[Rfam]
RNA sequence: CUGGAGAAAUGAUGAUAAAUCAGUAUAAAUCUUAGGACACCUUCUGACACACCUGUGUAUGAGAAUGACGUGUUGUUCUGAUCUUCAG
Numbered sequence: 001c002u003g004g005a006g007a008a009a010u011g012a013u014g015a016u017a018a019a020u021c022a023g024u025a026u027a028a029a030u031c032u033u034a035g036g037a038c039a040c041c042u043u044c045u046g047a048c049a050c051a052c053c054u055g056u057g058u059a060u061g062a063g064a065a066u067g068a069c070g071u072g073u074u075g076u077u078c079u080g081a082u083c084u085u086c087a088g
Stems, first nucleotide, its partner, number of pairs: 001088007045051002
Rfam assigns this 88-nucleotide sequence from Brassica rapa to the family "Small nucleolar RNA snoR31/Z110/Z27". Rfam classes the family as a C/D-box small nucleolar RNA. It scores 72 bits against the family's covariance model. About the family: This family contains several related snoRNAs including R31, Z27 and Z110.